A member of the RNA family "Small nucleolar RNA SNORD102" from Otolemur garnettii, 69 nucleotides long. Its family is annotated with nucleolus and RNA processing in the Gene Ontology. A search with the family's covariance model found it, with a score of 48 bits. Rfam classes the family as a C/D-box small nucleolar RNA. The source organism's lineage runs through Eukaryota, Tetrapoda, Boreoeutheria, Strepsirrhini and Otolemur. The family has 11 seed sequences and 443 matches in Rfam 15.1.
RNA sequence: CACUUAAACGAAGAUUAUCUUUUUGAUGGCUAAAACAAUGUGAAAAACAUUUCAUCAGCUCUGAAAGUU
Dot-bracket structure: .((((...........................................................)))).
Numbered sequence: 001c002a003c004u005u006a007a008a009c010g011a012a013g014a015u016u017a018u019c020u021u022u023u024u025g026a027u028g029g030c031u032a033a034a035a036c037a038a039u040g041u042g043a044a045a046a047a048c049a050u051u052u053c054a055u056c057a058g059c060u061c062u063g064a065a066a067g068u069u
Stems, first nucleotide, its partner, number of pairs: 002068004